[Rfam]
The record is an 89-nucleotide RNA from Anisakis simplex, which matches "Small nucleolar RNA sn2903" in Rfam. It is annotated as a C/D-box small nucleolar RNA. On this family, see Zemann et al., Nucleic Acids Res 2006: "Evolution of small nucleolar RNAs in nematodes". Gene Ontology terms of the family: nucleolus and RNA processing.
RNA sequence: GAGCGAUGAUGAUUGCACGUUUGCUGACACCUCUUAUGUUAGCACUCAUUCAUAAUGGGUGCGGUGAUUAUAAACUGUUCUCUGAGCUC
Numbered sequence: 001g002a003g004c005g006a007u008g009a010u011g012a013u014u015g016c017a018c019g020u021u022u023g024c025u026g027a028c029a030c031c032u033c034u035u036a037u038g039u040u041a042g043c044a045c046u047c048a049u050u051c052a053u054a055a056u057g058g059g060u061g062c063g064g065u066g067a068u069u070a071u072a073a074a075c076u077g078u079u080c081u082c083u084g085a086g087c088u089c
Base pairs, nucleotide, nucleotide: 001089002088003087004086